[Rfam]
RNA: FMN riboswitch aptamer (RFN element)
Organism: Vibrio aquimaris
RNA sequence: AGUUAUUCUCAGGGCGGGGUGAAAUUCCCCACCGGCGGUAAAUUCAAAACAAGAAAAGCCCGCGAGCGCUCGAGUUUUCGAGGACAGCAGAUCUGGUGAGACUCCAGAGCCGACGGUUAAAGUCCGGAUGAGAGAGAAUUGAA
Numbered sequence: 001a002g003u004u005a006u007u008c009u010c011a012g013g014g015c016g017g018g019g020u021g022a023a024a025u026u027c028c029c030c031a032c033c034g035g036c037g038g039u040a041a042a043u044u045c046a047a048a049a050c051a052a053g054a055a056a057a058g059c060c061c062g063c064g065a066g067c068g069c070u071c072g073a074g075u076u077u078u079c080g081a082g083g084a085c086a087g088c089a090g091a092u093c094u095g096g097u098g099a100g101a102c103u104c105c106a107g108a109g110c111c112g113a114c115g116g117u118u119a120a121a122g123u124c125c126g127g128a129u130g131a132g133a134g135a136g137a138a139u140u141g142a143a
Base pairs, nucleotide, nucleotide: 003141005139006138007137008136009135010134017029018028019027031123032122033112034111035063036062037061038060058110059109066088067087092108093107094106095105096104114126115125116124